[Rfam]
RNA sequence: CUGGUGAGCGGAGAUGGCAUUCCUCCGUAUAACCGCCGCAGCCUGCGGCUGAUGAUGCCUACGAUUGG
Numbered sequence: 001c002u003g004g005u006g007a008g009c010g011g012a013g014a015u016g017g018c019a020u021u022c023c024u025c026c027g028u029a030u031a032a033c034c035g036c037c038g039c040a041g042c043c044u045g046c047g048g049c050u051g052a053u054g055a056u057g058c059c060u061a062c063g064a065u066u067g068g
Base pairs, nucleotide, nucleotide: 010026011025012024013023016059017058018057019056020055021054035049036048037047038046

Rfam assigns this 68-nucleotide sequence from Thauera sinica to the family "Fluoride riboswitch aptamer (crcB RNA motif)". A search with the family's covariance model found it, with a score of 52 bits. The family's consensus secondary structure is taken from published work.